[Rfam]
RNA: MIR1120/MIR1122 microRNA precursor family
Nucleotides: 085
Base pairs, nucleotide, nucleotide: 003083004082005081007079008078009077010076011075013073014072015071016070017069019067020066021065022064023063024062025061026060027059028058029057030056031055032054033053034052036050037049038048039047040046041045
Number, partner (000 for none) and nucleotide at each position: 001000c002000u003083a004082c005081u006000c007079c008078c009077u010076c011075c012000g013073u014072c015071c016070c017069a018000u019067a020066a021065u022064a023063u024062a025061a026060g027059a028058u029057c030056g031055u032054u033053u034052c035000a036050c037049a038048a039047g040046c041045u042000a043000a044000a045041a046040g047039c048038u049037u050036g051000c052034g053033a054032a055031a056030c057029g058028a059027u060026c061025u062024u063023a064022u065021a066020u067019u068000a069017u070016g071015g072014g073013a074000c075011g076010g077009a078008g079007g080000g081005a082004g083003u084000a085000a